Annotation
c-di-GMP-I riboswitch aptamer: a 101-nucleotide sequence from Azoarcus indigens. NCBI's taxonomy places the organism under Bacteria, Pseudomonadati, Betaproteobacteria, Rhodocyclales, Azoarcus.
[Rfam]
RNA sequence: AUACAACUUGGGCACACCCGCACGAAAGGCGGGGUCGCAAAGCUUCCGGUCUAACAUCCUUCCGCGGCAUGCGGGCGGGUCAAGAUAGCGGGGUUGCCGGA
Numbered sequence: 001a002u003a004c005a006a007c008u009u010g011g012g013c014a015c016a017c018c019c020g021c022a023c024g025a026a027a028g029g030c031g032g033g034g035u036c037g038c039a040a041a042g043c044u045u046c047c048g049g050u051c052u053a054a055c056a057u058c059c060u061u062c063c064g065c066g067g068c069a070u071g072c073g074g075g076c077g078g079g080u081c082a083a084g085a086u087a088g089c090g091g092g093g094u095u096g097c098c099g100g101a
Stems, first nucleotide, its partner, number of pairs: 012038002017033005023028001041095004046091003049086003056080004
Dot-bracket structure: ...........((...(((((.(....))))))...))..((((.((((((....((((.................))))...)))..)))))))......